permuted transfer-messenger RNA: a 200-nucleotide RNA sequence from Synechococcus sp. SynAce01. A reference for the family is Williams and Bartel (1996), "Phylogenetic analysis of tmRNA secondary structure", RNA. A search with the family's covariance model found it, with a score of 145 bits. The base pairs follow the family's consensus structure, which is taken from published work. About the family: Bacterial tmRNA, also known as 10Sa RNA or SsrA, is named for its dual tRNA and mRNA-like properties.

RNA sequence: GGUGACUCACACCGGUGCUUCGGACAGCGGUUCGAUUCCGCUCAGCUCCACUUUCCACCUUCGGGCGGAUCUUUCAGGGGGCUGCAAUGGUUUCGACGGGGUAAUAGGAGGGUGACUGAAGCCUGCUCGGUAAGAGCAAAUCCGUAACAGCGAACAACAUCGUUGCUUUCUCCCGUCAGCCCGCCCCUGUGGCCGCCUGA
Numbered sequence: 001g002g003u004g005a006c007u008c009a010c011a012c013c014g015g016u017g018c019u020u021c022g023g024a025c026a027g028c029g030g031u032u033c034g035a036u037u038c039c040g041c042u043c044a045g046c047u048c049c050a051c052u053u054u055c056c057a058c059c060u061u062c063g064g065g066c067g068g069a070u071c072u073u074u075c076a077g078g079g080g081g082c083u084g085c086a087a088u089g090g091u092u093u094c095g096a097c098g099g100g101g102u103a104a105u106a107g108g109a110g111g112g113u114g115a116c117u118g119a120a121g122c123c124u125g126c127u128c129g130g131u132a133a134g135a136g137c138a139a140a141u142c143c144g145u146a147a148c149a150g151c152g153a154a155c156a157a158c159a160u161c162g163u164u165g166c167u168u169u170c171u172c173c174c175g176u177c178a179g180c181c182c183g184c185c186c187c188u189g190u191g192g193c194c195g196c197c198u199g200a
Stems, first nucleotide, its partner, number of pairs: 001117003005113001016103003020099003026042005043084007